The record is a 37-nucleotide RNA from Rippkaea orientalis, which matches "CRISPR RNA direct repeat element" in Rfam. Pairs were carried over by alignment from the consensus structure, which was predicted with WAR. Rfam 15.1 lists 201 matches to the family in 33 species. The match comes from Rfam's covariance-model search (42 bits). The organism belongs to Rippkaea orientalis, within Bacteria.
[Rfam]
RNA sequence: CUUUCAACCUACCCCUUAUCGGGAUGGCGGUUGAAAC
Numbered sequence: 001c002u003u004u005c006a007a008c009c010u011a012c013c014c015c016u017u018a019u020c021g022g023g024a025u026g027g028c029g030g031u032u033g034a035a036a037c
Stems, first nucleotide, its partner, number of pairs: 005033004009027002013023003